[Rfam]
RNA sequence: AAGAUCACUUCAAACAGGAGCAUUGAUUUGUCCUUUGUUCAUAAGUGCUUCUCUUUGGGGUAGUUUUA
Numbered sequence: 001a002a003g004a005u006c007a008c009u010u011c012a013a014a015c016a017g018g019a020g021c022a023u024u025g026a027u028u029u030g031u032c033c034u035u036u037g038u039u040c041a042u043a044a045g046u047g048c049u050u051c052u053c054u055u056u057g058g059g060g061u062a063g064u065u066u067u068a
Base pairs, nucleotide, nucleotide: 004064005063007061008060009059010058011057014055016052017051018050019049020048021047022046023045024044026042027041
RNA: miR-430 microRNA precursor family